[Rfam]
The record is an 84-nucleotide RNA, which matches "Peptidase-S11 RNA" in Rfam. It is one of the family's seed sequences. The family's RNA type in Rfam is cis-regulatory element.

RNA sequence: GCUAUGAUGCCUUUGCCAGCCUGUGUCCGCGCGUUUUCACAGGAGGCGUACGUCAUAACGUGCAUGAAUAAUUAUCAGAAGUUU
Numbered sequence: 001g002c003u004a005u006g007a008u009g010c011c012u013u014u015g016c017c018a019g020c021c022u023g024u025g026u027c028c029g030c031g032c033g034u035u036u037u038c039a040c041a042g043g044a045g046g047c048g049u050a051c052g053u054c055a056u057a058a059c060g061u062g063c064a065u066g067a068a069u070a071a072u073u074a075u076c077a078g079a080a081g082u083u084u
Stems, first nucleotide, its partner, number of pairs: 015047003020043006048063006